[Rfam]
Rfam assigns this 71-nucleotide sequence to the family "tRNA".
The sequence is in the family's curated seed alignment.
Pairs were carried over by alignment from the consensus structure, which is taken from published work.
RNA sequence: UAGGAUAGGGUGUAUUGGUGGCACGGAGAAUUUUGAAUUCUUAGGUGUAGGUUCAAUUCCUAUUGUCCUAG
Numbered sequence: 001u002a003g004g005a006u007a008g009g010g011u012g013u014a015u016u017g018g019u020g021g022c023a024c025g026g027a028g029a030a031u032u033u034u035g036a037a038u039u040c041u042u043a044g045g046u047g048u049a050g051g052u053u054c055a056a057u058u059c060c061u062a063u064u065g066u067c068c069u070a071g
Base pairs, nucleotide, nucleotide: 001070002069003068004067005066006065007064010024011023012022013021026042027041028040029039030038047063048062049061050060051059